[Rfam]
RNA: mir-199 microRNA precursor family
Nucleotides: 080
Base pairs, nucleotide, nucleotide: 012068013067014066015065016064017063018062020060021059022058023057024056025055026054028053029052030051031050033048034047
Number, partner (000 for none) and nucleotide at each position: 001000a002000c003000u004000c005000c006000g007000u008000c009000u010000g011000c012068c013067c014066a015065g016064u017063g018062u019000u020060c021059a022058g023057a024056c025055u026054a027000c028053c029052u030051g031050u032000u033048c034047a035000g036000g037000a038000c039000u040000a041000c042000g043000a044000g045000a046000u047034u048033g049000u050031a051030c052029a053028g054026u055025a056024g057023u058022c059021u060020g061000c062018a063017c064016a065015u066014u067013g068012g069000u070000u071000a072000g073000g074000c075000u076000g077000u078000g079000c080000u